[Rfam]
RNA sequence: AUUCCGGCUGAUCCUGCCGGAGGUCAUUGCUAUCCGGAUCUGGCUAAGCCAUGCUUGUUCUGGGUUAAACCAGGGCAGAGAGCUCAGUAACACGUAGUCAACCUGCCCUUAGGUUCGGACGAAUCUCGGGAAACUGAGGCUAAUGCCGAAUAGGCAAUAUAUUCUGGAAUGAUUUAUUGUUCAACUAAGGAUGGGACUGCGGCUGAUUAGGUUGUUGCCAGGCUAAAAGGGAUUGACGACUUGGAUUUUCGGAUUAAGUCGUCUUCCUUAGAUUCCUGACAAGCCGAUAAUCAGUACGGGCCUUGAGAGAGGAUGCCCGGAGAUGGAUUCUGAGACAAGAAUCCAGGUCCUACGGGGUGCAGCAGGCGCGAAACUUUCCCAAUGCACGCAAGUGUGAGGAAGAGAUCUGGAGUGUUUUCUCAUUUUGAGGGAACUUUUGCCAAGUGCAAACAGCUUGGAGAAUAAGUGGUGGGUAAUACAGGUGCCAGCCGCCGCGGUAAUACCUGAGCCACGAGUGAUGACCACGUUUAUUG
Numbered sequence: 001a002u003u004c005c006g007g008c009u010g011a012u013c014c015u016g017c018c019g020g021a022g023g024u025c026a027u028u029g030c031u032a033u034c035c036g037g038a039u040c041u042g043g044c045u046a047a048g049c050c051a052u053g054c055u056u057g058u059u060c061u062g063g064g065u066u067a068a069a070c071c072a073g074g075g076c077a078g079a080g081a082g083c084u085c086a087g088u089a090a091c092a093c094g095u096a097g098u099c100a101a102c103c104u105g106c107c108c109u110u111a112g113g114u115u116c117g118g119a120c121g122a123a124u125c126u127c128g129g130g131a132a133a134c135u136g137a138g139g140c141u142a143a144u145g146c147c148g149a150a151u152a153g154g155c156a157a158u159a160u161a162u163u164c165u166g167g168a169a170u171g172a173u174u175u176a177u178u179g180u181u182c183a184a185c186u187a188a189g190g191a192u193g194g195g196a197c198u199g200c201g202g203c204u205g206a207u208u209a210g211g212u213u214g215u216u217g218c219c220a221g222g223c224u225a226a227a228a229g230g231g232a233u234u235g236a237c238g239a240c241u242u243g244g245a246u247u248u249u250c251g252g253a254u255u256a257a258g259u260c261g262u263c264u265u266c267c268u269u270a271g272a273u274u275c276c277u278g279a280c281a282a283g284c285c286g287a288u289a290a291u292c293a294g295u296a297c298g299g300g301c302c303u304u305g306a307g308a309g310a311g312g313a314u315g316c317c318c319g320g321a322g323a324u325g326g327a328u329u330c331u332g333a334g335a336c337a338a339g340a341a342u343c344c345a346g347g348u349c350c351u352a353c354g355g356g357g358u359g360c361a362g363c364a365g366g367c368g369c370g371a372a373a374c375u376u377u378c379c380c381a382a383u384g385c386a387c388g389c390a391a392g393u394g395u396g397a398g399g400a401a402g403a404g405a406u407c408u409g410g411a412g413u414g415u416u417u418u419c420u421c422a423u424u425u426u427g428a429g430g431g432a433a434c435u436u437u438u439g440c441c442a443a444g445u446g447c448a449a450a451c452a453g454c455u456u457g458g459a460g461a462a463u464a465a466g467u468g469g470u471g472g473g474u475a476a477u478a479c480a481g482g483u484g485c486c487a488g489c490c491g492c493c494g495c496g497g498u499a500a501u502a503c504c505u506g507a508g509c510c511a512c513g514a515g516u517g518a519u520g521a522c523c524a525c526g527u528u529u530a531u532u533g
Stems, first nucleotide, its partner, number of pairs: 004020005022523010033411009042369001048367003052364003057076007083322003093201007102194002107190006115149004124139006154180006161173001163172002203294003210285003215282003219278004297319004301312004324345006347358004375401001377400003383396005414434008440458006466512005479506004488495002
Rfam assigns this 533-nucleotide part of an RNA from a Candidatus Aenigmatarchaeota archaeon to the family "Archaeal small subunit ribosomal RNA". The base pairs follow the family's consensus structure, which is taken from published work. The match comes from Rfam's covariance-model search (1293 bits). The family is grouped with related families in Rfam's "SSU clan". Lineage of the source: Archaea > Nanobdellati > Candidatus Aenigmatarchaeota.